[Rfam]
RNA sequence: GAUUGAAAUGAUGAAUAUUCAAUCAUAUUGAUAGCUGAAAUGAUAGCAUUUUAUCAUGUAUUAGCUCUAGCUGAUCACUC
Numbered sequence: 001g002a003u004u005g006a007a008a009u010g011a012u013g014a015a016u017a018u019u020c021a022a023u024c025a026u027a028u029u030g031a032u033a034g035c036u037g038a039a040a041u042g043a044u045a046g047c048a049u050u051u052u053a054u055c056a057u058g059u060a061u062u063a064g065c066u067c068u069a070g071c072u073g074a075u076c077a078c079u080c
Stems, first nucleotide, its partner, number of pairs: 002079001004077002030050001034047003
RNA: Small nucleolar RNA Z102/R77
Organism: Ipomoea nil